[Rfam]
RNA: SAM riboswitch aptamer (S box leader)
Organism: Gracilibacillus thailandensis
RNA sequence: UUCUUAUCGAGAGAGGUGGAGGGAUUGGCCCUGUGAAGCCUCGGCAACCAUUAAGUGAAUCGUCCUUAAUACAGGUGCCAAUUCCACUAAGCGCAUAUGCUUAGAGAGAUAAGAG
Numbered sequence: 001u002u003c004u005u006a007u008c009g010a011g012a013g014a015g016g017u018g019g020a021g022g023g024a025u026u027g028g029c030c031c032u033g034u035g036a037a038g039c040c041u042c043g044g045c046a047a048c049c050a051u052u053a054a055g056u057g058a059a060u061c062g063u064c065c066u067u068a069a070u071a072c073a074g075g076u077g078c079c080a081a082u083u084c085c086a087c088u089a090a091g092c093g094c095a096u097a098u099g100c101u102u103a104g105a106g107a108g109a110u111a112a113g114a115g
Base pairs, nucleotide, nucleotide: 001115002114003113004112005111006110007109008108013042014041015040016039017038021031022030023029026086027085028084043079044078045077046076048075049074050070051069052068053067054066055065083107087104088103089102090101091100092099